[Rfam]
RNA: Eukaryotic large subunit ribosomal RNA, nucleotides 405 to 701
Organism: Cafeteria roenbergensis
RNA sequence: UGAUUGGCCCCAGUACGGCCUCUGAGUUGCGUGCAACGAAGUUGGCCGGUCAGCAUCGGCUGCUGCUGCGUGAGAGCGCCCUUGGGAAGGUGGCGUGGCCCUGCUUCGGCGGGUAGUCGCGUGUUAUAGCCCAGGGAGCGCGGCGCGGCGGCGGCCGAGGGAAGCGACGUACCUACAGCUACAGGUGAUCCGGUAAGCCUUCCGCGAGCUUGCUCGCUACGGCCCCGGUGAGCCAAACAGCUGCGUGCGUCGAAGAUGCUGACGAAAUGGGUUCAAUCAGCCCGUCUUGAAACACGG
Numbered sequence: 001u002g003a004u005u006g007g008c009c010c011c012a013g014u015a016c017g018g019c020c021u022c023u024g025a026g027u028u029g030c031g032u033g034c035a036a037c038g039a040a041g042u043u044g045g046c047c048g049g050u051c052a053g054c055a056u057c058g059g060c061u062g063c064u065g066c067u068g069c070g071u072g073a074g075a076g077c078g079c080c081c082u083u084g085g086g087a088a089g090g091u092g093g094c095g096u097g098g099c100c101c102u103g104c105u106u107c108g109g110c111g112g113g114u115a116g117u118c119g120c121g122u123g124u125u126a127u128a129g130c131c132c133a134g135g136g137a138g139c140g141c142g143g144c145g146c147g148g149c150g151g152c153g154g155c156c157g158a159g160g161g162a163a164g165c166g167a168c169g170u171a172c173c174u175a176c177a178g179c180u181a182c183a184g185g186u187g188a189u190c191c192g193g194u195a196a197g198c199c200u201u202c203c204g205c206g207a208g209c210u211u212g213c214u215c216g217c218u219a220c221g222g223c224c225c226c227g228g229u230g231a232g233c234c235a236a237a238c239a240g241c242u243g244c245g246u247g248c249g250u251c252g253a254a255g256a257u258g259c260u261g262a263c264g265a266a267a268u269g270g271g272u273u274c275a276a277u278c279a280g281c282c283c284g285u286c287u288u289g290a291a292a293c294a295c296g297g
Base pairs, nucleotide, nucleotide: 001279002278003277004276005275006274007273009271010270011269012268017047021045022044024042051261052260053259054258055257056256057255282297283296284295285294